[Rfam]
RNA sequence: AAUCGCGUGAGUACUGGCUGUUGCGUGAUAUAUCAUCGUAAAAGCUGUCAAAACCACGCAAAAUCAAAAAUCGAUAAUAUUUAAAUUACCGUGUGAAAUUAACUAUAAUUCACUCGGAGGAGAUAUUCUCAUAUUU
Numbered sequence: 001a002a003u004c005g006c007g008u009g010a011g012u013a014c015u016g017g018c019u020g021u022u023g024c025g026u027g028a029u030a031u032a033u034c035a036u037c038g039u040a041a042a043a044g045c046u047g048u049c050a051a052a053a054c055c056a057c058g059c060a061a062a063a064u065c066a067a068a069a070a071u072c073g074a075u076a077a078u079a080u081u082u083a084a085a086u087u088a089c090c091g092u093g094u095g096a097a098a099u100u101a102a103c104u105a106u107a108a109u110u111c112a113c114u115c116g117g118a119g120g121a122g123a124u125a126u127u128c129u130c131a132u133a134u135u136u
Stems, first nucleotide, its partner, number of pairs: 005059005011054002013048002016046004022040003074129001076127006086119002089117003093113004

Overview
Caenorhabditis snoRNA ceN51: a 136-nucleotide RNA from Caenorhabditis angaria. The base pairs follow the family's consensus structure, which was predicted with RNAalifold. For this family Rfam cites "Systematic identification of non-coding RNA 2,2,7-trimethylguanosine cap structures in Caenorhabditis elegans" (Jia et al., BMC Mol Biol, 2007). Lineage of the source: Eukaryota > Opisthokonta > Bilateria > Protostomia > Caenorhabditis. Rfam 15.1 lists 11 matches to the family in 10 species.